Annotation
The record is a 305-nucleotide RNA sequence from Elizabethkingia argenteiflava, which matches "Bacterial RNase P class A" in Rfam. By type it is a ribozyme. It scores 198 bits against the family's covariance model. Pairs were carried over by alignment from the consensus structure, which is taken from published work.
RNA sequence: CGACAAGCGCGGCCUGUUGAUCCUUUAAGGGUAGGAAAGUCCGGACACCAUAGGGCAACAUAGCGGUUAAUGGCCGUCAUCCGCGAGGAUAGGACAAGUGCAACAGAAAGCAAGUACAGUUCGGCUGUAGUGAAAUCAGGUAAACUCUAUGUGGUGCAAUGCUAUGUAUACCGGCAAUUAAGGGCAGCCCGCCCAAUGCCGGGGGGUAAGCAGCUACAUUGUGUUGGUAACAAUACAGGGAGAUAAAUAACAGGCACCUCUCUUCUAAGGGGGUACAGAAUCCGGCUUAUAGCGCUUGUCUUUUU
Numbered sequence: 001c002g003a004c005a006a007g008c009g010c011g012g013c014c015u016g017u018u019g020a021u022c023c024u025u026u027a028a029g030g031g032u033a034g035g036a037a038a039g040u041c042c043g044g045a046c047a048c049c050a051u052a053g054g055g056c057a058a059c060a061u062a063g064c065g066g067u068u069a070a071u072g073g074c075c076g077u078c079a080u081c082c083g084c085g086a087g088g089a090u091a092g093g094a095c096a097a098g099u100g101c102a103a104c105a106g107a108a109a110g111c112a113a114g115u116a117c118a119g120u121u122c123g124g125c126u127g128u129a130g131u132g133a134a135a136u137c138a139g140g141u142a143a144a145c146u147c148u149a150u151g152u153g154g155u156g157c158a159a160u161g162c163u164a165u166g167u168a169u170a171c172c173g174g175c176a177a178u179u180a181a182g183g184g185c186a187g188c189c190c191g192c193c194c195a196a197u198g199c200c201g202g203g204g205g206g207u208a209a210g211c212a213g214c215u216a217c218a219u220u221g222u223g224u225u226g227g228u229a230a231c232a233a234u235a236c237a238g239g240g241a242g243a244u245a246a247a248u249a250a251c252a253g254g255c256a257c258c259u260c261u262c263u264u265c266u267a268a269g270g271g272g273g274u275a276c277a278g279a280a281u282c283c284g285g286c287u288u289a290u291a292g293c294g295c296u297u298g299u300c301u302u303u304u305u
Base pairs, nucleotide, nucleotide: 002300003299004298005297006296007295008294009293010292011290012255013254014253015252016251017250018249020032021031022030023029024028037288038287039286041285042284043283044282045281046156047155048154049153053190054189055188056187058152059151060150061149062148063077064076065075066074067073078092079090080089081088082087093147094146098145099144100141101140115129116128117127118126119125120124160212161211162210163209171202172201173200174199175198182194183193184192185191219238220237221236222235223234224233225232226231